RNA sequence: GAAAAAGAUAGAGGUUGCGGUCGCCAUCAGUAACCUGCCCGAGCAAAGCACAUGCGCUGAAGGCAGGCGAAAGGGAACACCGCCGAAAUCCUCACCGGCGUGUGAACGGUGAGCGGUUGGGCCGCUGGAGAAGAUCCGGCGGACUGUCGCAGUAAUGCGGGGCGCUAUCGUCAAU
Numbered sequence: 001g002a003a004a005a006a007g008a009u010a011g012a013g014g015u016u017g018c019g020g021u022c023g024c025c026a027u028c029a030g031u032a033a034c035c036u037g038c039c040c041g042a043g044c045a046a047a048g049c050a051c052a053u054g055c056g057c058u059g060a061a062g063g064c065a066g067g068c069g070a071a072a073g074g075g076a077a078c079a080c081c082g083c084c085g086a087a088a089u090c091c092u093c094a095c096c097g098g099c100g101u102g103u104g105a106a107c108g109g110u111g112a113g114c115g116g117u118u119g120g121g122c123c124g125c126u127g128g129a130g131a132a133g134a135u136c137c138g139g140c141g142g143a144c145u146g147u148c149g150c151a152g153u154a155a156u157g158c159g160g161g162g163c164g165c166u167a168u169c170g171u172c173a174a175u
Stems, first nucleotide, its partner, number of pairs: 007169005017083005025075001034067006087118004091113007119145002122142008147160005
Notes:
The family of this 175-nucleotide RNA from Lacticaseibacillus camelliae is "Lysine riboswitch aptamer". The base pairs follow the family's consensus structure, which is taken from published work. It scores 105 bits against the family's covariance model.